[Rfam]
RNA sequence: CUUUCUUCAACAAACACGGGCCUGUGCCCAGAAUUCCUCUGCUCCUGCGGGAGUUCAGGGUCGAGUUCUGUGGCAGCUCGAUCGUCCAAGGAGCCAUCAAAUUCAUGAUGUCAAUCUUCCGAUCGACAGGUUCAAGAGUGACCGGUCUUGAGGCAGCCAUGUUCGCCGUCAAAAGCUUGAGCGUGGUGUAAUCUUGCACUGGGGACGUCAUAUUCCUACCCCUUUUUCCGAGAUCGUCGAUCUAUGAGGUUAGGGAAAACCAUGACUUGCCCACAAAC
Numbered sequence: 001c002u003u004u005c006u007u008c009a010a011c012a013a014a015c016a017c018g019g020g021c022c023u024g025u026g027c028c029c030a031g032a033a034u035u036c037c038u039c040u041g042c043u044c045c046u047g048c049g050g051g052a053g054u055u056c057a058g059g060g061u062c063g064a065g066u067u068c069u070g071u072g073g074c075a076g077c078u079c080g081a082u083c084g085u086c087c088a089a090g091g092a093g094c095c096a097u098c099a100a101a102u103u104c105a106u107g108a109u110g111u112c113a114a115u116c117u118u119c120c121g122a123u124c125g126a127c128a129g130g131u132u133c134a135a136g137a138g139u140g141a142c143c144g145g146u147c148u149u150g151a152g153g154c155a156g157c158c159a160u161g162u163u164c165g166c167c168g169u170c171a172a173a174a175g176c177u178u179g180a181g182c183g184u185g186g187u188g189u190a191a192u193c194u195u196g197c198a199c200u201g202g203g204g205a206c207g208u209c210a211u212a213u214u215c216c217u218a219c220c221c222c223u224u225u226u227u228c229c230g231a232g233a234u235c236g237u238c239g240a241u242c243u244a245u246g247a248g249g250u251u252a253g254g255g256a257a258a259a260c261c262a263u264g265a266c267u268u269g270c271c272c273a274c275a276a277a278c
Base pairs, nucleotide, nucleotide: 018133019132020131021130022129023128024127025126026074027073028072029070030069031068033066034065035064036063037060038059039058040057041056043053044051045050082125084123085122086121090112091111093109095107145199146198151195152194153193157186159184160183161182162181163180164179165176166175204271206269207266208265209264210263211262220255221254222253224252228249229248232242233241234240235239
Rfam assigns this 278-nucleotide RNA from Colletotrichum orchidophilum to the family "A. fumigatus sRNA Afu_309".
Rfam 15.1 lists 663 matches to the family in 646 species.
The organism belongs to Colletotrichum, within Eukaryota.
A reference for the family is Jochl et al. (2008), "Small ncRNA transcriptome analysis from Aspergillus fumigatus suggests a novel mechanism for regulation of protein synthesis", Nucleic Acids Res.